RNA sequence: AGAGGGCAAGAUUACUCGGGGUGAGUACAUCGAUCUUGCCCUCCUUCACCCCGAUAAUCUUGCGCACG
Numbered sequence: 001a002g003a004g005g006g007c008a009a010g011a012u013u014a015c016u017c018g019g020g021g022u023g024a025g026u027a028c029a030u031c032g033a034u035c036u037u038g039c040c041c042u043c044c045u046u047c048a049c050c051c052c053g054a055u056a057a058u059c060u061u062g063c064g065c066a067c068g
Stems, first nucleotide, its partner, number of pairs: 004065001006063009016054010
This 68-nucleotide RNA sequence from Nematostella vectensis belongs to the Rfam family "mir-9441 microRNA precursor family". The sequence is in the family's curated seed alignment. Taxonomically the source falls in Nematostella (Eukaryota, Anthozoa, Hexacorallia, Actiniaria). The base pairs follow the family's consensus structure, which was predicted with RNAalifold. Rfam links the family to the GO terms RISC complex and miRNA-mediated post-transcriptional gene silencing.